[Rfam]
RNA sequence: CCCAGGGCUUUGCCCUGGGCUGGGAUAUAUCGCCCCUUUGGGGCU
Numbered sequence: 001c002c003c004a005g006g007g008c009u010u011u012g013c014c015c016u017g018g019g020c021u022g023g024g025a026u027a028u029a030u031c032g033c034c035c036c037u038u039u040g041g042g043g044c045u
Stems, first nucleotide, its partner, number of pairs: 001019008032044005
The record is a 45-nucleotide sequence from Granulicella mallensis, which matches "Acido-Lenti-1 RNA" in Rfam.
The source organism's lineage runs through Bacteria, Terriglobia, Terriglobales, Granulicella and Granulicella mallensis.
A search with the family's covariance model found it, with a score of 46 bits.
The family's RNA type in Rfam is small RNA.
Pairs were carried over by alignment from the consensus structure, which is taken from published work.